[Rfam]
RNA: Bacterial large subunit ribosomal RNA, nucleotides 2226 to 2811
RNA sequence: CGCGCGGCAGGACGGAAAGACCCCGGGACCUUUACUACAGCUUGAUAUUGGUGUUCGGUUCGGUUUGUGUAGGAUAGGUGGGAGACUGUGAAGCUGGGACGCCAGUUCCGGUGGAGUCGUUGUUGAAAUACCACUCUGGUCGUACUGGAUGUCUAACCUCGGUCCGUGAUCCGGAUCAGGGACAGUGUCAGGUGGGUAGUUUAACUGGGGCGGUUGCCUCCUAAAGGGUAACGGAGGCGCCCAAAGGUUCCCUCAGCCUGGUUGGCAAUCAGGUGUUGAGUGCAAGUGCACAAGGGAGCUUGACUGUGAGACAGACAUGUCGAGCAGGUGCGAAAGCAGGGACUAGUGAUCCGGCGGUGGCUUGUGGAAGCGCCGUCGCUCAACGGAUAAAAGGUACCCCGGGGAUAACAGGCUGAUCUUGCCCAAGAGUCCAUAUCGACGGCAAGGUUUGGCACCUCGAUGUCGGCUCGUCGCAUCCUGGGGCUGGAGUAGGUCCCAAGGGUUGGGCUGUUCGCCCAUUAAAGCGGUACGCGAGCUGGGUUUAGAACGUCGUGAGACAGUUCGGUCCCUAUCCGCCGCGCGCGCA
Number, nucleotide and partner (000 for none) at each position: 001c582002g581003c580004g579005c578006g577007g576008c575009a000010g574011g573012a572013c000014g569015g568016a000017a000018a000019g000020a000021c000022c403023c402024c401025g400026g399027g398028a395029c394030c393031u392032u391033u000034a200035c199036u198037a197038c000039a000040g000041c192042u191043u190044g189045a188046u187047a186048u000049u000050g153051g152052u151053g150054u149055u148056c147057g146058g145059u144060u000061c142062g141063g140064u139065u138066u000067g136068u000069g000070u000071a000072g000073g000074a000075u000076a000077g135078g134079u133080g132081g131082g000083a000084g118085a117086c116087u000088g000089u000090g000091a000092a000093g112094c111095u110096g109097g108098g107099a106100c105101g000102c000103c000104a000105g100106u099107u098108c097109c096110g095111g094112u093113g000114g000115a000116g086117u085118c084119g000120u000121u000122g000123u000124u000125g000126a000127a000128a000129u000130a000131c081132c080133a079134c078135u077136c067137u000138g065139g064140u063141c062142g061143u000144a059145c058146u057147g056148g055149a054150u053151g052152u051153c050154u000155a000156a000157c180158c179159u178160c000161g177162g176163u175164c174165c173166g172167u000168g000169a000170u000171c000172c166173g165174g164175a163176u162177c161178a159179g158180g157181g000182a000183c000184a000185g000186u047187g046188u045189c044190a043191g042192g041193u000194g000195g000196g000197u037198a036199g035200u034201u000202u000203a215204a214205c213206u212207g000208g000209g000210g000211c000212g206213g205214u204215u203216g238217c237218c236219u235220c234221c233222u000223a000224a000225a000226g000227g000228g000229u000230a000231a000232c000233g221234g220235a219236g218237g217238c216239g384240c000241c341242c340243a000244a000245a000246g000247g299248u298249u297250c296251c295252c294253u279254c278255a000256g274257c273258c272259u271260g270261g269262u000263u000264g000265g000266c000267a000268a000269u261270c260271a259272g258273g257274u256275g000276u000277u000278g254279a253280g289281u288282g000283c000284a000285a000286g000287u000288g281289c280290a000291c000292a000293a000294g252295g251296g250297a249298g248299c247300u000301u000302g000303a000304c327305u326306g325307u324308g000309a000310g321311a320312c319313a000314g000315a000316c000317a000318u000319g312320u311321c310322g000323a000324g307325c306326a305327g304328g000329u338330g337331c336332g000333a000334a000335a000336g331337c330338a329339g000340g242341g241342a000343c000344u000345a000346g000347u000348g000349a000350u000351c000352c378353g377354g376355c375356g374357g373358u372359g000360g371361c370362u000363u000364g000365u000366g000367g000368a000369a000370g361371c360372g358373c357374c356375g355376u354377c353378g352379c000380u000381c000382a000383a000384c239385g000386g000387a000388u000389a000390a000391a032392a031393g030394g029395u028396a000397c000398c027399c026400c025401g024402g023403g022404g000405a000406u000407a000408a000409c000410a000411g000412g453413c452414u451415g000416a450417u447418c446419u445420u444421g443422c442423c441424c000425a000426a000427g437428a436429g000430u000431c000432c000433a000434u000435a000436u428437c427438g000439a000440c000441g423442g422443c421444a420445a419446g418447g417448u000449u000450u416451g414452g413453c412454a000455c000456c000457u000458c000459g000460a000461u000462g000463u000464c539465g537466g536467c535468u534469c531470g528471u527472c526473g525474c524475a000476u000477c502478c501479u000480g497481g496482g495483g494484c493485u492486g000487g000488a000489g000490u000491a000492g485493g484494u483495c482496c481497c480498a000499a000500g000501g478502g477503u000504u518505g517506g516507g515508c514509u000510g000511u000512u000513c000514g508515c507516c506517c505518a504519u000520u000521a000522a000523a000524g474525c473526g472527g471528u470529a000530c000531g469532c000533g000534a468535g467536c466537u465538g000539g464540g000541u000542u000543u000544a000545g563546a562547a561548c560549g558550u557551c556552g000553u000554g000555a000556g551557a550558c549559a000560g548561u547562u546563c545564g000565g000566u000567c000568c015569c014570u000571a000572u012573c011574c010575g008576c007577c006578g005579c004580g003581c002582g001583c000584g000585c000586a000